[Rfam]
RNA sequence: UGAAAAUCCUGUAAGUGGUGUAGUCCCCCACCAUGGAGCUACUUUUCAAUAUUCCGAAUUC
Numbered sequence: 001u002g003a004a005a006a007u008c009c010u011g012u013a014a015g016u017g018g019u020g021u022a023g024u025c026c027c028c029c030a031c032c033a034u035g036g037a038g039c040u041a042c043u044u045u046u047c048a049a050u051a052u053u054c055c056g057a058a059u060u061c
Stems, first nucleotide, its partner, number of pairs: 017045002020042005026036002

The record is a 61-nucleotide RNA sequence from Dendrobium nobile, which matches "Plastid-psbN 5UTR RNA" in Rfam. Plastid psbN is a non-coding RNA (ncRNA) recognised in plastids. It was reported as a conserved 11 stem-loop in the prime untranslated region (5UTR) of psbN genes. NCBI's taxonomy places the organism under Eukaryota, Streptophyta, Tracheophyta, Liliopsida, Dendrobium. Rfam classes the family as a cis-regulatory element.